[Rfam]
RNA: EFASI RNA
Organism: Xenorhabdus nematophila
RNA sequence: ACGUCACGAUAAUGAGGCGUUCACCCUGAUUGAAUCAGGCUCUGAACGGGGAGCAUGUCAUCGCUGUGCUGAGCACGUCGCGAGCUCCUGCAAAAACUCAACACAACCUCGCCCUUGCUACACAUUGUCUGACG
Numbered sequence: 001a002c003g004u005c006a007c008g009a010u011a012a013u014g015a016g017g018c019g020u021u022c023a024c025c026c027u028g029a030u031u032g033a034a035u036c037a038g039g040c041u042c043u044g045a046a047c048g049g050g051g052a053g054c055a056u057g058u059c060a061u062c063g064c065u066g067u068g069c070u071g072a073g074c075a076c077g078u079c080g081c082g083a084g085c086u087c088c089u090g091c092a093a094a095a096a097c098u099c100a101a102c103a104c105a106a107c108c109u110c111g112c113c114c115u116u117g118c119u120a121c122a123c124a125u126u127g128u129c130u131g132a133c134g
Stems, first nucleotide, its partner, number of pairs: 002134004008129007018048006049089004061083004065077005